Shown here is a 91-nucleotide RNA from Silurus meridionalis, a member of the family "mir-146 microRNA precursor family". Gene Ontology terms of the family: miRNA-mediated post-transcriptional gene silencing and RISC complex. The family's consensus secondary structure was predicted with WAR. A search with the family's covariance model found it, with a score of 62 bits.
[Rfam]
RNA sequence: CUGAGCACAUGGCCCUGAGAACUGAAUUCCAUAGAUGGUGGUCAAAAGGAGCUCAUCUAUGGACUCAGUUCUUUUGGCAAUGUGCUCUUUA
Numbered sequence: 001c002u003g004a005g006c007a008c009a010u011g012g013c014c015c016u017g018a019g020a021a022c023u024g025a026a027u028u029c030c031a032u033a034g035a036u037g038g039u040g041g042u043c044a045a046a047a048g049g050a051g052c053u054c055a056u057c058u059a060u061g062g063a064c065u066c067a068g069u070u071c072u073u074u075u076g077g078c079a080a081u082g083u084g085c086u087c088u089u090u091a
Stems, first nucleotide, its partner, number of pairs: 008082002012078002018072008033058004
Overview
The literature on the family includes a 2002 paper in Curr Biol by Lagos-Quintana et al., "Identification of tissue-specific microRNAs from mouse".